[Rfam]
RNA sequence: ACUCGAUGAUGAAUAGAAAUGACAAGCAUAUGGCUGAGUCCUGAGUGAUGUCAUUUUAAUGCUGAGAAGU
Number, nucleotide and partner (000 for none) at each position: 001a070002c069003u067004c066005g000006a000007u000008g000009a000010u000011g000012a000013a000014u000015a000016g000017a000018a000019a000020u000021g000022a000023c000024a000025a000026g000027c000028a000029u000030a000031u000032g000033g000034c000035u000036g000037a000038g000039u000040c000041c000042u000043g000044a000045g000046u000047g000048a000049u000050g000051u000052c000053a000054u000055u000056u000057u000058a000059a000060u000061g000062c000063u000064g000065a000066g004067a003068a000069g002070u001
RNA: Small nucleolar RNA SNORD27
Organism: Cavia porcellus